[Rfam]
RNA sequence: UGGCGCCCAAUGGUAUCGCGAGGGAAGAGGCGUUUAAUGGUUCGGCCGAACAAAGCAGAAAUCAGUUCAAGAAGGAUUGUCCCGGGAGCCUGCUGCGCCGUUCUUAAAGGUACAGUAGCGCCUAAGUAUGGGACAAGAAUUAAGUAAGCAUAAAGUUUUUGUUAAGCAAUUAAAAGAAGCUUUAAAGACAUGGGGAGUAAAGGUUAAGAGUAAUGAUCUUUUUAAGUUUUUUGACCUUAUUAAGGAUAUCUGUCCGU
Numbered sequence: 001u002g003g004c005g006c007c008c009a010a011u012g013g014u015a016u017c018g019c020g021a022g023g024g025a026a027g028a029g030g031c032g033u034u035u036a037a038u039g040g041u042u043c044g045g046c047c048g049a050a051c052a053a054a055g056c057a058g059a060a061a062u063c064a065g066u067u068c069a070a071g072a073a074g075g076a077u078u079g080u081c082c083c084g085g086g087a088g089c090c091u092g093c094u095g096c097g098c099c100g101u102u103c104u105u106a107a108a109g110g111u112a113c114a115g116u117a118g119c120g121c122c123u124a125a126g127u128a129u130g131g132g133a134c135a136a137g138a139a140u141u142a143a144g145u146a147a148g149c150a151u152a153a154a155g156u157u158u159u160u161g162u163u164a165a166g167c168a169a170u171u172a173a174a175a176g177a178a179g180c181u182u183u184a185a186a187g188a189c190a191u192g193g194g195g196a197g198u199a200a201a202g203g204u205u206a207a208g209a210g211u212a213a214u215g216a217u218c219u220u221u222u223u224a225a226g227u228u229u230u231u232u233g234a235c236c237u238u239a240u241u242a243a244g245g246a247u248a249u250c251u252g253u254c255c256g257u
Base pairs, nucleotide, nucleotide: 006024007023008022012019067106076102078100081097083095084094085093116136118134121132122131123130124129141184142183143182144180145179191233192232193231194230195229196228197227198226201219202218203217204216205215206214242257244255245254246253247252

Mason-Pfizer monkey virus packaging signal: a 257-nucleotide RNA sequence from Sciurus vulgaris. For this family Rfam cites "Secondary structure model of the Mason-Pfizer monkey virus 5' leader sequence: identification of a structural motif common to a variety of retroviruses" (Harrison et al., J Virol, 1995). The family's RNA type in Rfam is cis-regulatory element. Rfam's curators write: This family represents a group of sequences that are related to the Mason-Pfizer monkey virus (MPMV) packaging signal. The packaging signal is located in the 5' UTR and is required for specific RNA encapsidation.